RNA sequence: AGAUGGGGCCGGAUGGUCGCUGCCGGCUUCGGCCGGGAGAGGAAAGUCCGAACUCCAUAGGGCGGUGUGCCGGAUAACGUCCGGGACUGCACCGUAAAGGGUGCAGGACGGCCAGUGCCACAGAGAAGAUACCGCCCCGGGCAACCGGGGUAAGGGUGAAAAGGUGCGGUAAGAGCGCACCGCGCAGUCAGUAAUGGCUGUGGCAGGGUAAACCCCACACGGAGCAAGACCAAAUAGGCGGGGAGAUGGCUCAAGACCCAGACGGGGCCAUCGCGUGCCGGCCCGGCACGUUAAGGUGGGUCCCCAAUGCGGUUCACCGCAAAGGGCCGGAACUCGCGGGUAGGUUGCUGUUGAGUGUCCGCAGUAAUGCGGCGCCUAGAGGAAUGACCGUCUAGAACAGAAUUCGGCUUACGGGCCUUAUCUGCGG
Numbered sequence: 001a002g003a004u005g006g007g008g009c010c011g012g013a014u015g016g017u018c019g020c021u022g023c024c025g026g027c028u029u030c031g032g033c034c035g036g037g038a039g040a041g042g043a044a045a046g047u048c049c050g051a052a053c054u055c056c057a058u059a060g061g062g063c064g065g066u067g068u069g070c071c072g073g074a075u076a077a078c079g080u081c082c083g084g085g086a087c088u089g090c091a092c093c094g095u096a097a098a099g100g101g102u103g104c105a106g107g108a109c110g111g112c113c114a115g116u117g118c119c120a121c122a123g124a125g126a127a128g129a130u131a132c133c134g135c136c137c138c139g140g141g142c143a144a145c146c147g148g149g150g151u152a153a154g155g156g157u158g159a160a161a162a163g164g165u166g167c168g169g170u171a172a173g174a175g176c177g178c179a180c181c182g183c184g185c186a187g188u189c190a191g192u193a194a195u196g197g198c199u200g201u202g203g204c205a206g207g208g209u210a211a212a213c214c215c216c217a218c219a220c221g222g223a224g225c226a227a228g229a230c231c232a233a234a235u236a237g238g239c240g241g242g243g244a245g246a247u248g249g250c251u252c253a254a255g256a257c258c259c260a261g262a263c264g265g266g267g268c269c270a271u272c273g274c275g276u277g278c279c280g281g282c283c284c285g286g287c288a289c290g291u292u293a294a295g296g297u298g299g300g301u302c303c304c305c306a307a308u309g310c311g312g313u314u315c316a317c318c319g320c321a322a323a324g325g326g327c328c329g330g331a332a333c334u335c336g337c338g339g340g341u342a343g344g345u346u347g348c349u350g351u352u353g354a355g356u357g358u359c360c361g362c363a364g365u366a367a368u369g370c371g372g373c374g375c376c377u378a379g380a381g382g383a384a385u386g387a388c389c390g391u392c393u394a395g396a397a398c399a400g401a402a403u404u405c406g407g408c409u410u411a412c413g414g415g416c417c418u419u420a421u422c423u424g425c426g427g
Stems, first nucleotide, its partner, number of pairs: 001423010011412001012392007020039002023036005044410003048407005053224004065220005070084005085109001087106007110215002115213002117209003132155002134151007163181006182204001183202008228346004238337005282326003355375004360371004
The family of this 427-nucleotide RNA sequence from Terriglobus albidus is "Bacterial RNase P class A". It scores 260 bits against the family's covariance model. About the family: Ribonuclease P (RNase P) is a ubiquitous endoribonuclease, found in archaea, bacteria and eukarya as well as chloroplasts and mitochondria. Its best characterised activity is the generation of mature 5'-ends of tRNAs by cleaving the 5'-leader elements of precursor-tRNAs. Cellular RNase Ps are ribonucleoproteins.